The record is a 95-nucleotide RNA from Turnera subulata, which matches "MIR535 microRNA precursor family" in Rfam.
[Rfam]
RNA sequence: GCAAUUGUCUGACAGCGAGAGAGAGCACGCUUGUUUGCAAUCAUGCACAGGCCAUGGUUGUGUACAUGCGUGCUACCUUUCGUUGUCAGGCAUCA
Number, nucleotide and partner (000 for none) at each position: 001g000002c000003a000004a000005u000006u000007g000008u000009c000010u088011g087012a086013c085014a084015g000016c082017g081018a000019g000020a078021g077022a000023g000024a000025g073026c072027a071028c070029g069030c068031u000032u066033g065034u064035u000036u000037g000038c000039a000040a000041u000042c000043a000044u000045g000046c000047a000048c000049a000050g000051g000052c000053c000054a000055u000056g000057g000058u000059u000060g000061u000062g000063u000064a034065c033066a032067u000068g030069c029070g028071u027072g026073c025074u000075a000076c000077c021078u020079u000080u000081c017082g016083u000084u014085g013086u012087c011088a010089g000090g000091c000092a000093u000094c000095a000
The base pairs follow the family's consensus structure, which was predicted with RNAalifold. The organism belongs to Turnera, within Eukaryota. For this family Rfam cites "Conservation and divergence of microRNAs and their functions in Euphorbiaceous plants" (Zeng et al., Nucleic Acids Res, 2010). A search with the family's covariance model found it, with a score of 80 bits.